Shown here is a 119-nucleotide RNA sequence from Neochlamydia sp. S13, a member of the family "Group II catalytic intron D1-D4-2". Rfam describes the family as follows. Group II introns are found in rRNA, tRNA and mRNA of organelles in fungi, plants and protists, and also in mRNA in bacteria. It scores 103 bits against the family's covariance model. Its family is annotated with Group II intron splicing in the Gene Ontology. Pairs were carried over by alignment from the consensus structure.

RNA sequence: UAGGGAAGGCCCCUAGUAACCGAUGACUUAGGCAUAGGUUACAAACCACCUUAAGCUGCAUGGGUAAAGAGUCCAUGUGGUGAGCGUUAAGGAAAAGGUAUAGCAAGACUAUAUCAGGU
Numbered sequence: 001u002a003g004g005g006a007a008g009g010c011c012c013c014u015a016g017u018a019a020c021c022g023a024u025g026a027c028u029u030a031g032g033c034a035u036a037g038g039u040u041a042c043a044a045a046c047c048a049c050c051u052u053a054a055g056c057u058g059c060a061u062g063g064g065u066a067a068a069g070a071g072u073c074c075a076u077g078u079g080g081u082g083a084g085c086g087u088u089a090a091g092g093a094a095a096a097g098g099u100a101u102a103g104c105a106a107g108a109c110u111a112u113a114u115c116a117g118g119u
Stems, first nucleotide, its partner, number of pairs: 001015005016042006023035003027032001047118001049092006055081002058078003062074004097115006